[Rfam]
mir-9195 microRNA precursor family: an 87-nucleotide RNA from Cnephaeus nilssonii. Rfam links the family to the GO terms RISC complex and miRNA-mediated post-transcriptional gene silencing. The organism belongs to Cnephaeus, within Eukaryota.

RNA sequence: AGAGGCCCUCCGUGGCCGGGGUGGAAUGCUUGCCUUGUUGUCAUGGCGACAAAGCAAGCAUUCUGCCAGGCCGUUCACACUGCUUGC
Number, nucleotide and partner (000 for none) at each position: 001a000002g000003a000004g084005g083006c082007c000008c000009u000010c000011c000012g074013u073014g072015g071016c070017c069018g000019g000020g067021g066022u065023g064024g063025a062026a061027u060028g059029c058030u057031u056032g055033c054034c000035u000036u000037g050038u049039u048040g047041u046042c000043a000044u000045g000046g041047c040048g039049a038050c037051a000052a000053a000054g033055c032056a031057a030058g029059c028060a027061u026062u025063c024064u023065g022066c021067c020068a000069g017070g016071c015072c014073g013074u012075u000076c000077a000078c000079a000080c000081u000082g006083c005084u004085u000086g000087c000